[Rfam]
RNA sequence: UAGUGAAAUGAUAGCAGUCAUCUUUUGGGACUGACCUGAAAUGAAGAGAAUACUCCUUCCUAAUCACUU
Numbered sequence: 001u002a003g004u005g006a007a008a009u010g011a012u013a014g015c016a017g018u019c020a021u022c023u024u025u026u027g028g029g030a031c032u033g034a035c036c037u038g039a040a041a042u043g044a045a046g047a048g049a050a051u052a053c054u055c056c057u058u059c060c061u062a063a064u065c066a067c068u069u
Stems, first nucleotide, its partner, number of pairs: 002068005
RNA: Small nucleolar RNA SNORD2
Organism: Odobenus rosmarus